[Rfam]
RNA sequence: AUUAAUGGAAGUUCGACUAAGAUCGUCACGUACUGUGACAACGUCGAACCGACCCACAUCGUGUGGG
Number, nucleotide and partner (000 for none) at each position: 001a000002u000003u000004a000005a000006u000007g000008g000009a000010a000011g049012u048013u047014c046015g045016a044017c043018u000019a000020a000021g000022a000023u000024c000025g039026u038027c037028a036029c035030g000031u000032a000033c000034u000035g029036u028037g027038a026039c025040a000041a000042c000043g017044u016045c015046g014047a013048a012049c011050c000051g000052a000053c067054c066055c065056a064057c063058a000059u000060c000061g000062u000063g057064u056065g055066g054067g053
The family of this 67-nucleotide RNA sequence from Salibacterium salarium is "Bacillaceae-1 RNA".
The family's consensus secondary structure is taken from published work.